[Rfam]
RNA sequence: GGGGUGCGCAAUAGACUUACCUCCACGUGGUGCACCCUGGGCAACGUUUAUACACAUACGGAAAAGAUGUCUAU
Numbered sequence: 001g002g003g004g005u006g007c008g009c010a011a012u013a014g015a016c017u018u019a020c021c022u023c024c025a026c027g028u029g030g031u032g033c034a035c036c037c038u039g040g041g042c043a044a045c046g047u048u049u050a051u052a053c054a055c056a057u058a059c060g061g062a063a064a065a066g067a068u069g070u071c072u073a074u
Stems, first nucleotide, its partner, number of pairs: 001038007019031003045060003049056001